The family of this 186-nucleotide RNA sequence from Sutterella wadsworthensis is "Lysine riboswitch aptamer". The base pairs follow the family's consensus structure, which is taken from published work. A search with the family's covariance model found it, with a score of 60 bits.
RNA sequence: AUGCUGAAUAGAGGCGCAGUGCGAAUGAACGCCGCUCGACGGGGGCACCCAAAAAUAGGAAGAGCGUCGCAAGGUCAAACUGCCGAAACGACCGGCUAGGCAUGGACGGUCAGUUGGUCAUCGCCGAAAGACGACGAUGACUCCCGAACGCUGCAUUGUCAGACGUUCGGAGGCGCUAUCGGCGGC
Numbered sequence: 001a002u003g004c005u006g007a008a009u010a011g012a013g014g015c016g017c018a019g020u021g022c023g024a025a026u027g028a029a030c031g032c033c034g035c036u037c038g039a040c041g042g043g044g045g046c047a048c049c050c051a052a053a054a055a056u057a058g059g060a061a062g063a064g065c066g067u068c069g070c071a072a073g074g075u076c077a078a079a080c081u082g083c084c085g086a087a088a089c090g091a092c093c094g095g096c097u098a099g100g101c102a103u104g105g106a107c108g109g110u111c112a113g114u115u116g117g118u119c120a121u122c123g124c125c126g127a128a129a130g131a132c133g134a135c136g137a138u139g140a141c142u143c144c145c146g147a148a149c150g151c152u153g154c155a156u157u158g159u160c161a162g163a164c165g166u167u168c169g170g171a172g173g174c175g176c177u178a179u180c181g182g183c184g185g186c
Stems, first nucleotide, its partner, number of pairs: 008179004016083005023076002031068001033066005087115003090111005096105002116142008125133002144170007